[Rfam]
RNA sequence: UCCUUCCUUGUUGAGGGGAGCAUAAUGUCCAAGGAUCGUUUAGUGAGGGCAUUUCUGCUGGCACCCCAAUAAAUUUACCCGCAUCCGUAUCUUCCGAGAUUACGAGUGCAAUUUUUGGAGGA
Numbered sequence: 001u002c003c004u005u006c007c008u009u010g011u012u013g014a015g016g017g018g019a020g021c022a023u024a025a026u027g028u029c030c031a032a033g034g035a036u037c038g039u040u041u042a043g044u045g046a047g048g049g050c051a052u053u054u055c056u057g058c059u060g061g062c063a064c065c066c067c068a069a070u071a072a073a074u075u076u077a078c079c080c081g082c083a084u085c086c087g088u089a090u091c092u093u094c095c096g097a098g099a100u101u102a103c104g105a106g107u108g109c110a111a112u113u114u115u116u117g118g119a120g121g122a
Stems, first nucleotide, its partner, number of pairs: 005019005020058003024053007037043001081109004086104003089100004
Shown here is a 122-nucleotide RNA sequence from Dendroctonus ponderosae, a member of the family "U4atac minor spliceosomal RNA". Rfam classes the family as a spliceosomal small nuclear RNA. Rfam describes the family as follows. U4atac is an essential component of the minor U12-type spliceosome complex which is required for removal of the rarer class of eukaryotic introns (AT-AC, U12-type). Pairs were carried over by alignment from the consensus structure, which is taken from published work. Gene Ontology terms of the family: U4atac snRNP, spliceosomal tri-snRNP complex assembly and pre-mRNA 5'-splice site binding.